[Rfam]
RNA: mir-17 microRNA precursor family
RNA sequence: UUAGUUAUGCAAAAGUGCUUACAGUGCAGGUAGUAUUCUGUACCUACUGCAAUGGAAGCACUUGCAGCCUUACUAU
Numbered sequence: 001u002u003a004g005u006u007a008u009g010c011a012a013a014a015g016u017g018c019u020u021a022c023a024g025u026g027c028a029g030g031u032a033g034u035a036u037u038c039u040g041u042a043c044c045u046a047c048u049g050c051a052a053u054g055g056a057a058g059c060a061c062u063u064g065c066a067g068c069c070u071u072a073c074u075a076u
Base pairs, nucleotide, nucleotide: 004073005072007070009068010067013063014062015061016060017059018058019057020056022054023053025051026050027049029048030047031046032045033044